[Rfam]
RNA: Small nucleolar RNA Z199
RNA sequence: GAUCAAGUGAUGAAAAAAUAACUGCAACAAUAUGAGAGAUUUCAAUCUCAUGAUUCUUAGUAUUUAAGUCUCUGAUGGUC
Numbered sequence: 001g002a003u004c005a006a007g008u009g010a011u012g013a014a015a016a017a018a019u020a021a022c023u024g025c026a027a028c029a030a031u032a033u034g035a036g037a038g039a040u041u042u043c044a045a046u047c048u049c050a051u052g053a054u055u056c057u058u059a060g061u062a063u064u065u066a067a068g069u070c071u072c073u074g075a076u077g078g079u080c
Base pairs, nucleotide, nucleotide: 001079003078004077005076036049037048038047039046040045